[Rfam]
RNA sequence: CACGCGUUAGCGAUUGAAACGGCAUCCUUUUUAGUUGUCAGUUCGAGUGGAUUUGUGAAGAAUGAACAAAUUUGUAUCGAAAACAAAACUAAAAAGAUACAGUGAAAAGCGCGACCUUUU
Numbered sequence: 001c002a003c004g005c006g007u008u009a010g011c012g013a014u015u016g017a018a019a020c021g022g023c024a025u026c027c028u029u030u031u032u033a034g035u036u037g038u039c040a041g042u043u044c045g046a047g048u049g050g051a052u053u054u055g056u057g058a059a060g061a062a063u064g065a066a067c068a069a070a071u072u073u074g075u076a077u078c079g080a081a082a083a084c085a086a087a088a089c090u091a092a093a094a095a096g097a098u099a100c101a102g103u104g105a106a107a108a109g110c111g112c113g114a115c116c117u118u119u120u
Stems, first nucleotide, its partner, number of pairs: 010112003014108002019103002024098003030093007
RNA: Flavo-1 RNA
Organism: Tenacibaculum todarodis